The record is a 141-nucleotide RNA from Granulicella sibirica, which matches "Group II catalytic intron D1-D4-4" in Rfam. The pairing is the family consensus, mapped onto this sequence. The family has 90 seed sequences and 840 matches in Rfam 15.1.

RNA sequence: CAGUGGGUGCAAGUCCCACCCGGGAGCUGUUCGUUCCGCCCGGUAGCAAUCGGAGCAGCGGUGGAGGUAACGAAGCUGCUGAAGCCUCCGGUGGAAGAGGGUCGUAAAGGCGACUCUGCAAGCGUGCAGGCCGUAACGUGA
Numbered sequence: 001c002a003g004u005g006g007g008u009g010c011a012a013g014u015c016c017c018a019c020c021c022g023g024g025a026g027c028u029g030u031u032c033g034u035u036c037c038g039c040c041c042g043g044u045a046g047c048a049a050u051c052g053g054a055g056c057a058g059c060g061g062u063g064g065a066g067g068u069a070a071c072g073a074a075g076c077u078g079c080u081g082a083a084g085c086c087u088c089c090g091g092u093g094g095a096a097g098a099g100g101g102u103c104g105u106a107a108a109g110g111c112g113a114c115u116c117u118g119c120a121a122g123c124g125u126g127c128a129g130g131c132c133g134u135a136a137c138g139u140g141a
Base pairs, nucleotide, nucleotide: 020043021042022041023040024039051090052089053088054087055086056081057080058079059078060077061076066071100115101114102113103112104111105110118134119133
A search with the family's covariance model found it, with a score of 105 bits.